[Rfam]
Source information: mir-395 microRNA precursor family: a 99-nucleotide RNA from Zizania palustris. Gene Ontology terms of the family: miRNA-mediated post-transcriptional gene silencing and RISC complex. Pairs were carried over by alignment from the consensus structure, which was predicted with PFOLD.
RNA sequence: GUUUUAUCAGGAGUUUCCUUCAAGCACUUCAUGUGGAGUUUCACAUUGAUAUGGAGCUUUAGAAUCACGUGAAGUGUUUGGGGGAACUCUAGGUAGCAC
Numbered sequence: 001g002u003u004u005u006a007u008c009a010g011g012a013g014u015u016u017c018c019u020u021c022a023a024g025c026a027c028u029u030c031a032u033g034u035g036g037a038g039u040u041u042c043a044c045a046u047u048g049a050u051a052u053g054g055a056g057c058u059u060u061a062g063a064a065u066c067a068c069g070u071g072a073a074g075u076g077u078u079u080g081g082g083g084g085a086a087c088u089c090u091a092g093g094u095a096g097c098a099c
Stems, first nucleotide, its partner, number of pairs: 005095004011089010022079015